Record summary: The record is an 84-nucleotide sequence, which matches "c-di-GMP-II-GAG riboswitch aptamer" in Rfam. Rfam links the family to the GO terms regulation of gene expression and cyclic-di-GMP binding. Clan: c-di-GMP_II riboswitch clan. On this family, see Weinberg et al., Proc Natl Acad Sci U S A 2017: "Bioinformatic analysis of riboswitch structures uncovers variant classes with altered ligand specificity".

RNA sequence: UCUCACGCGGGGGCUCUGACACGCGGCCCACACUCCGGCCGCCCGGACCGCGCCGAGCCACCGGCGAGACCGACCCGCGCAUGG
Numbered sequence: 001u002c003u004c005a006c007g008c009g010g011g012g013g014c015u016c017u018g019a020c021a022c023g024c025g026g027c028c029c030a031c032a033c034u035c036c037g038g039c040c041g042c043c044c045g046g047a048c049c050g051c052g053c054c055g056a057g058c059c060a061c062c063g064g065c066g067a068g069a070c071c072g073a074c075c076c077g078c079g080c081a082u083g084g
Stems, first nucleotide, its partner, number of pairs: 001084002006079006012059003022052005028046001037071002040066004